[Rfam]
RNA sequence: ACCUUAUUAAGAGAGACAGAGGGAAUAGGCCCGAAGAAGUCCAGCAACCUAUUUAGUUAGGUGCUAAAUCCUACGGUUUAACCGAAAAAUAAGGA
Numbered sequence: 001a002c003c004u005u006a007u008u009a010a011g012a013g014a015g016a017c018a019g020a021g022g023g024a025a026u027a028g029g030c031c032c033g034a035a036g037a038a039g040u041c042c043a044g045c046a047a048c049c050u051a052u053u054u055a056g057u058u059a060g061g062u063g064c065u066a067a068a069u070c071c072u073a074c075g076g077u078u079u080a081a082c083c084g085a086a087a088a089a090u091a092a093g094g095a
Base pairs, nucleotide, nucleotide: 002094003093004092005091006090007089008088013042015041016040017039021032022031023030026073027072028071029070043065044064045063046062048061049060051057052056069087074084075083076082077081
Source information
The family of this 95-nucleotide sequence from Mycoplasma sp. CAG:776 is "SAM riboswitch aptamer (S box leader)". Pairs were carried over by alignment from the consensus structure, which is taken from published work. About the family: The SAM riboswitch is found upstream of a number of genes which code for proteins involved in methionine or cysteine biosynthesis in Gram-positive bacteria. The SAM riboswitch acts at the level of transcription termination control. The source organism's lineage runs through Bacteria, Mycoplasmatota, Mycoplasmatales, Mycoplasmataceae and Mycoplasma.